[Rfam]
RNA: c-di-AMP riboswitch aptamer (ydaO/yuaA leader)
Organism: Streptomyces sporangiiformans
RNA sequence: UCCAUCCACGCGCUAAGGCAGGAGCGGGGGACCCAGGUAAGUCGCCGAUCCGGAUACCGGAACGGCUUGGGGUGAAGCCGCACGCACCGUGCGGCCGGGCACCUCCAGCCCGAACCCGACAGCUCACCUCGCAGGCGCCGGAGAGGAAAUCG
Numbered sequence: 001u002c003c004a005u006c007c008a009c010g011c012g013c014u015a016a017g018g019c020a021g022g023a024g025c026g027g028g029g030g031a032c033c034c035a036g037g038u039a040a041g042u043c044g045c046c047g048a049u050c051c052g053g054a055u056a057c058c059g060g061a062a063c064g065g066c067u068u069g070g071g072g073u074g075a076a077g078c079c080g081c082a083c084g085c086a087c088c089g090u091g092c093g094g095c096c097g098g099g100c101a102c103c104u105c106c107a108g109c110c111c112g113a114a115c116c117c118g119a120c121a122g123c124u125c126a127c128c129u130c131g132c133a134g135g136c137g138c139c140g141g142a143g144a145g146g147a148a149a150u151c152g
Base pairs, nucleotide, nucleotide: 001023002022003021024132025131026130027129028128029127034069035068036067037066038065070117071116072115078094079093080092081091097111098110099109100108